[Rfam]
RNA sequence: GGUGAACGACAGGGGAGCGCUUCACUGCGCUGAGAGUGCGGGAAGCCGCAGACCCUCGAACCUGCUCCGGUUAGCACCGGCGAAGGGAGUCGGGAAAUCUCACGU
Numbered sequence: 001g002g003u004g005a006a007c008g009a010c011a012g013g014g015g016a017g018c019g020c021u022u023c024a025c026u027g028c029g030c031u032g033a034g035a036g037u038g039c040g041g042g043a044a045g046c047c048g049c050a051g052a053c054c055c056u057c058g059a060a061c062c063u064g065c066u067c068c069g070g071u072u073a074g075c076a077c078c079g080g081c082g083a084a085g086g087g088a089g090u091c092g093g094g095a096a097a098u099c100u101c102a103c104g105u
Stems, first nucleotide, its partner, number of pairs: 007092004011056004017030004037050005061086003067080004
RNA: TPP riboswitch aptamer (THI element)